A member of the RNA family "eL15-Euryarchaeota ribosomal protein leader" from Methanofollis liminatans, 52 nucleotides long.
By type it is a cis-regulatory leader.
The organism belongs to Methanofollis liminatans, within Archaea.
[Rfam]
RNA sequence: CGGGAUCAGUCCCGUGAAGGAAUGUGGCGCGAAACCAGCGCUGAACCUGAAG
Numbered sequence: 001c002g003g004g005a006u007c008a009g010u011c012c013c014g015u016g017a018a019g020g021a022a023u024g025u026g027g028c029g030c031g032a033a034a035c036c037a038g039c040g041c042u043g044a045a046c047c048u049g050a051a052g
Base pairs, nucleotide, nucleotide: 001014002013003012004011005010018048019047020046026042027041028040029039030038